Shown here is a 132-nucleotide sequence from Actinoplanes octamycinicus, a member of the family "SAM riboswitch aptamer (S box leader)". About the family: The SAM riboswitch is found upstream of a number of genes which code for proteins involved in methionine or cysteine biosynthesis in Gram-positive bacteria. Lineage of the source: Bacteria > Actinomycetota > Actinomycetes > Micromonosporaceae > Actinoplanes. Gene Ontology term of the family: regulation of gene expression.

RNA sequence: ACCUCAUCCAGAGGGGCAGAGGGAACGGCCCUGUGAAGCCCCGGCAACCACCGCGUAUGUCUCGAGGACGAGGCCGCGCGCGGCAGGUGCUAAUUCCGUCCCGAGGCAGGUCGCCGCCGGGAAAGAUGAGAG
Numbered sequence: 001a002c003c004u005c006a007u008c009c010a011g012a013g014g015g016g017c018a019g020a021g022g023g024a025a026c027g028g029c030c031c032u033g034u035g036a037a038g039c040c041c042c043g044g045c046a047a048c049c050a051c052c053g054c055g056u057a058u059g060u061c062u063c064g065a066g067g068a069c070g071a072g073g074c075c076g077c078g079c080g081c082g083g084c085a086g087g088u089g090c091u092a093a094u095u096c097c098g099u100c101c102c103g104a105g106g107c108a109g110g111u112c113g114c115c116g117c118c119g120g121g122a123a124a125g126a127u128g129a130g131a132g
Base pairs, nucleotide, nucleotide: 003130004129005128006127007126008125013042014041015040016039017038021031022030023029025099026098027097028096043091044090045089046088048087049086051083052082053081054080055079056078095124100121101120102119103118
Dot-bracket structure: ..((((((....(((((...(((.[[[[)))......)))))((((.((.((((((.....................))))))..))))))...(]]]]((((..............))))..)))))))..